[Rfam]
Nucleotides: 110
Stems, first nucleotide, its partner, number of pairs: 001110004014100005023045005048088007066081001068078001
Number, partner (000 for none) and nucleotide at each position: 001110g002109g003108g004107a005000u006000a007000u008000g009000a010000u011000g012000a013000g014100u015099g016098g017097u018096u019000g020000u021000u022000a023045c024044u025043c026042g027041c028000a029000a030000u031000u032000u033000u034000a035000a036000a037000a038000u039000a040000u041027g042026c043025g044024a045023g046000a047000u048088g049087g050086g051085c052084g053083u054082c055000c056000a057000g058000g059000c060000u061000c062000a063000g064000c065000c066081u067000c068078g069000u070000u071000a072000c073000g074000a075000c076000a077000u078068u079000u080000u081066g082054g083053g084052c085051g086050c087049u088048c089000u090000c091000a092000u093000u094000u095000u096018a097017a098016c099015c100014a101000a102000u103000c104000u105000g106000a107004u108003c109002c110001c
The family of this 110-nucleotide RNA sequence from Capsicum baccatum is "Small nucleolar RNA Z279/snoR105/snoR108".
About the family: This family includes the plant snoRNAs known as Z279, snoR105 and snoR108.
The base pairs follow the family's consensus structure, which was predicted with PFOLD.